[Rfam]
Annotation:
Shown here is a 111-nucleotide sequence from Caulobacter sp. 17J65-9, a member of the family "SAM riboswitch aptamer (S box leader)".
RNA sequence: CACUCAUCGAGACCGGCUGAGGGACAGGCCCGAAGACGCCGGGGCAACCUGCGAACCGAAUUCGCAAGGUGCCAACUCCUGCGGGGGCGCUUCGCCCGCGACAGAUGAGAC
Numbered sequence: 001c002a003c004u005c006a007u008c009g010a011g012a013c014c015g016g017c018u019g020a021g022g023g024a025c026a027g028g029c030c031c032g033a034a035g036a037c038g039c040c041g042g043g044g045c046a047a048c049c050u051g052c053g054a055a056c057c058g059a060a061u062u063c064g065c066a067a068g069g070u071g072c073c074a075a076c077u078c079c080u081g082c083g084g085g086g087g088c089g090c091u092u093c094g095c096c097c098g099c100g101a102c103a104g105a106u107g108a109g110a111c
Stems, first nucleotide, its partner, number of pairs: 003109006013042005021031003025081004043073004048069002051065004077103001082100002085097003

The family is grouped with related families in Rfam's "SAM clan". The base pairs follow the family's consensus structure, which is taken from published work. A search with the family's covariance model found it, with a score of 84 bits. Taxonomically the source falls in Caulobacter (Bacteria, Pseudomonadati, Pseudomonadota, Caulobacterales).